The family of this 178-nucleotide RNA sequence from Sinanaerobacter chloroacetimidivorans is "c-di-AMP riboswitch aptamer (ydaO/yuaA leader)". The source organism's lineage runs through Bacteria, Bacillati, Clostridia, Anaerovoracaceae and Sinanaerobacter. The literature on the family includes a 2004 paper in Proc Natl Acad Sci U S A by Barrick et al., "New RNA motifs suggest an expanded scope for riboswitches in bacterial genetic control". It scores 82 bits against the family's covariance model.
[Rfam]
RNA sequence: ACAGUUAGAAUGUUGAGUCUGGGAAAUCCAGAACGGGAGAACCAAUUAUUGGGGUGCAUCCGAUAAAAGUGCGGUGCUUUGCAGAUUGCGCAGGCUGAUUCGCAGCAAAAGAUAUCGGUAGGACAGCUCUUCAGUCCGAACCCGUCAGCUAAUCUCGUAAGCAUUGAGGAGUCACUGG
Numbered sequence: 001a002c003a004g005u006u007a008g009a010a011u012g013u014u015g016a017g018u019c020u021g022g023g024a025a026a027u028c029c030a031g032a033a034c035g036g037g038a039g040a041a042c043c044a045a046u047u048a049u050u051g052g053g054g055u056g057c058a059u060c061c062g063a064u065a066a067a068a069g070u071g072c073g074g075u076g077c078u079u080u081g082c083a084g085a086u087u088g089c090g091c092a093g094g095c096u097g098a099u100u101c102g103c104a105g106c107a108a109a110a111g112a113u114a115u116c117g118g119u120a121g122g123a124c125a126g127c128u129c130u131u132c133a134g135u136c137c138g139a140a141c142c143c144g145u146c147a148g149c150u151a152a153u154c155u156c157g158u159a160a161g162c163a164u165u166g167a168g169g170a171g172u173c174a175c176u177g178g
Stems, first nucleotide, its partner, number of pairs: 011163004018032003033158006043051002052143003060118006121137004